[Rfam]
RNA sequence: UUAGAAUGAUGAUUUCAGAAAAAUGACAAGCAUAUGUCUGACUCUCAAGUGGAGAAAAAUUUUCUUACGUCUGACUAA
Numbered sequence: 001u002u003a004g005a006a007u008g009a010u011g012a013u014u015u016c017a018g019a020a021a022a023a024u025g026a027c028a029a030g031c032a033u034a035u036g037u038c039u040g041a042c043u044c045u046c047a048a049g050u051g052g053a054g055a056a057a058a059a060u061u062u063u064c065u066u067a068c069g070u071c072u073g074a075c076u077a078a
Stems, first nucleotide, its partner, number of pairs: 001078004
RNA: Small nucleolar RNA SNORD27
Organism: Yarrowia lipolytica